[Rfam]
RNA sequence: AUGUCUUUUAACAUAUUAAGAAGUCAAAUUGAUAGUGAAGAAAGAAGUAGGAAGCCAAAAGCUAUCAUUGCCUAUAAUCAAAACCCAUAAACCCGUACCAUAAUUCUUUCUUCACUGUCAAUUCGACUUCCUGACUUGUUAAAAAAAAU
Numbered sequence: 001a002u003g004u005c006u007u008u009u010a011a012c013a014u015a016u017u018a019a020g021a022a023g024u025c026a027a028a029u030u031g032a033u034a035g036u037g038a039a040g041a042a043a044g045a046a047g048u049a050g051g052a053a054g055c056c057a058a059a060a061g062c063u064a065u066c067a068u069u070g071c072c073u074a075u076a077a078u079c080a081a082a083a084c085c086c087a088u089a090a091a092c093c094c095g096u097a098c099c100a101u102a103a104u105u106c107u108u109u110c111u112u113c114a115c116u117g118u119c120a121a122u123u124c125g126a127c128u129u130c131c132u133g134a135c136u137u138g139u140u141a142a143a144a145a146a147a148a149u
Base pairs, nucleotide, nucleotide: 004146006144007143008142009141010140011139012138013137016134017133018132020130021129022128023127024126025125027123028122029121030120031119033117034116035115036114037113038112039111040110041109042108043107044106045105046104048102049101051099056095